[Rfam]
A member of the RNA family "mir-492 microRNA precursor family" from Homo sapiens, 75 nucleotides long. Rfam 15.1 lists 149 matches to the family in 48 species.
RNA sequence: ACCAUUGAAGACCUGCGGGACAAGAUUCUUGGUGUCACCAUUGAGAACUCCCGGAUUGUCUUGCAGAUUGACACC
Number, nucleotide and partner (000 for none) at each position: 001a000002c000003c000004a000005u000006u000007g000008a000009a000010g069011a068012c000013c066014u065015g064016c063017g062018g061019g060020a059021c058022a057023a056024g000025a000026u000027u055028c054029u053030u000031g051032g050033u000034g048035u000036c000037a000038c000039c000040a000041u000042u000043g000044a000045g000046a000047a000048c034049u000050c032051c031052c000053g029054g028055a027056u023057u022058g021059u020060c019061u018062u017063g016064c015065a014066g013067a000068u011069u010070g000071a000072c000073a000074c000075c000
A reference for the family is Bentwich et al. (2005), "Identification of hundreds of conserved and nonconserved human microRNAs", Nat Genet. The match comes from Rfam's covariance-model search (80 bits).